Shown here is a 50-nucleotide RNA sequence from Devosia sp. YR412, a member of the family "Guanidine-II riboswitch aptamer (mini-ykkC)".
A search with the family's covariance model found it, with a score of 37 bits.
The source organism's lineage runs through Bacteria, Pseudomonadati, Pseudomonadota, Devosiaceae and Devosia.
[Rfam]
RNA sequence: GCGCGUGGACGACCUCGCGACUUCCAGACAUUCCGGCCGGGACGACCCGC
Numbered sequence: 001g002c003g004c005g006u007g008g009a010c011g012a013c014c015u016c017g018c019g020a021c022u023u024c025c026a027g028a029c030a031u032u033c034c035g036g037c038c039g040g041g042a043c044g045a046c047c048c049g050c
Base pairs, nucleotide, nucleotide: 002019003018004017005016007014008013038049039048040047041046